This 107-nucleotide RNA sequence from Rossellomorea marisflavi belongs to the Rfam family "PyrR binding site".
The organism belongs to Rossellomorea, within Bacteria.

[Rfam]
RNA sequence: GUAUCCUUUUAAGAGUGGUCCAGUGAGGCUGACAAAGGAUGGUGGGGAAGGCGUAUGGCCGUCUCCUGCCCUCUUUGUGCCCUCUUGGAUAAGAGGGUUUUUUUAAU
Numbered sequence: 001g002u003a004u005c006c007u008u009u010u011a012a013g014a015g016u017g018g019u020c021c022a023g024u025g026a027g028g029c030u031g032a033c034a035a036a037g038g039a040u041g042g043u044g045g046g047g048a049a050g051g052c053g054u055a056u057g058g059c060c061g062u063c064u065c066c067u068g069c070c071c072u073c074u075u076u077g078u079g080c081c082c083u084c085u086u087g088g089a090u091a092a093g094a095g096g097g098u099u100u101u102u103u104u105a106a107u
Stems, first nucleotide, its partner, number of pairs: 003040007016031005041072002044069001046067002049064005077100001079098008
Description: Rfam describes the family as follows. This family represents the PyrR binding site and terminator structure.